[Rfam]
Rfam assigns this 163-nucleotide sequence from Nocardioides gansuensis to the family "c-di-AMP riboswitch aptamer (ydaO/yuaA leader)".
RNA sequence: GUGACGGAUCCCCCGAGAGCACACAUCGGGCAGGAGUGGGGGACCCACAGGUUCCACGCCCGCCGCUCACGCGGCUGGCUCGGGGUGAAGUCACUCACGAGUGGCAGAGCACUUUCCAGCUCCAACCCGACAGCUCACCUCACAGGCGUGGGAAAGGAACACA
Numbered sequence: 001g002u003g004a005c006g007g008a009u010c011c012c013c014c015g016a017g018a019g020c021a022c023a024c025a026u027c028g029g030g031c032a033g034g035a036g037u038g039g040g041g042g043a044c045c046c047a048c049a050g051g052u053u054c055c056a057c058g059c060c061c062g063c064c065g066c067u068c069a070c071g072c073g074g075c076u077g078g079c080u081c082g083g084g085g086u087g088a089a090g091u092c093a094c095u096c097a098c099g100a101g102u103g104g105c106a107g108a109g110c111a112c113u114u115u116c117c118a119g120c121u122c123c124a125a126c127c128c129g130a131c132a133g134c135u136c137a138c139c140u141c142a143c144a145g146g147c148g149u150g151g152g153a154a155a156g157g158a159a160c161a162c163a
Stems, first nucleotide, its partner, number of pairs: 002148002005145001009035003036143006046082001083128003091104004107122004